[Rfam]
RNA sequence: ACUCCCUACGGAGCGCUCAGGUCCGCCGCAUCUCCUGGGUCCGUGGGGUUGGCCGGCGAGUAAACGGGUUCUGAGUGGCCUCCUCGUGUCAUCCGGUUCUCGCCGGCCACCAA
Numbered sequence: 001a002c003u004c005c006c007u008a009c010g011g012a013g014c015g016c017u018c019a020g021g022u023c024c025g026c027c028g029c030a031u032c033u034c035c036u037g038g039g040u041c042c043g044u045g046g047g048g049u050u051g052g053c054c055g056g057c058g059a060g061u062a063a064a065c066g067g068g069u070u071c072u073g074a075g076u077g078g079c080c081u082c083c084u085c086g087u088g089u090c091a092u093c094c095g096g097u098u099c100u101c102g103c104c105g106g107c108c109a110c111c112a113a
Stems, first nucleotide, its partner, number of pairs: 004048007016039006051108010
Notes
The record is a 113-nucleotide sequence from Pseudovibrio sp. JE062, which matches "EcpR1" in Rfam. The family's consensus secondary structure was predicted with WAR. It is one of the family's seed sequences. The source organism's lineage runs through Bacteria, Pseudomonadota, Hyphomicrobiales, Stappiaceae and Pseudovibrio. Rfam's curators write: Perviously named SmelC291, SmrC10, or Sra33. According to its overproduction phenotype it was renamed Elongated Cell Phenotype RNA1. Induced by stress,EcpR1 negatively regulates cell cycle master regulatory genes dnaA and gcrA at post-transcriptional level by base pairing between its strongly conserved GC-rich loop and the target mRNAs. It's regulation is hfq-independent but requires RNase E to regulate dnaA. Rfam classes the family as a small RNA. On this family, see del Val et al., Mol Microbiol 2007: "Identification of differentially expressed small non-coding RNAs in the legume endosymbiont Sinorhizobium meliloti by comparative genomics".